RNA sequence: CAGUCUCUCAGGUUCUAGCACGGCCCUCGGAAUGGCUAGAACUUUUUUAGCGCCACGGUCCCCCGUGGCGCUUUUUUUU
Numbered sequence: 001c002a003g004u005c006u007c008u009c010a011g012g013u014u015c016u017a018g019c020a021c022g023g024c025c026c027u028c029g030g031a032a033u034g035g036c037u038a039g040a041a042c043u044u045u046u047u048u049a050g051c052g053c054c055a056c057g058g059u060c061c062c063c064c065g066u067g068g069c070g071c072u073u074u075u076u077u078u079u
Stems, first nucleotide, its partner, number of pairs: 010044010024030002049072010

Shown here is a 79-nucleotide RNA from Burkholderia glumae, a member of the family "Burkholderia sRNA 54". On this family, see Sass et al., Sci Rep 2017: "Identification of small RNAs abundant in Burkholderia cenocepacia biofilms reveal putative regulators with a potential role in carbon and iron metabolism". Rfam describes the family as follows. Identified by RNA-seq, RACE and Northern blot. Rfam 15.1 lists 91 matches to the family in 60 species. The sequence is in the family's curated seed alignment.